[Rfam]
RNA sequence: CCUGCUCUUGCGGAAGAGAUCAGGUUCUACCCGACGCCGAAGGCGCAACCGCCCCGGAAACGCUCAGGCAAAAGGACCGCGGAGCACAA
Numbered sequence: 001c002c003u004g005c006u007c008u009u010g011c012g013g014a015a016g017a018g019a020u021c022a023g024g025u026u027c028u029a030c031c032c033g034a035c036g037c038c039g040a041a042g043g044c045g046c047a048a049c050c051g052c053c054c055c056g057g058a059a060a061c062g063c064u065c066a067g068g069c070a071a072a073a074g075g076a077c078c079g080c081g082g083a084g085c086a087c088a089a
Base pairs, nucleotide, nucleotide: 006084008082009081010080011079012078013077020034021033023031036069037068038067039065040064043063044062045061049057050056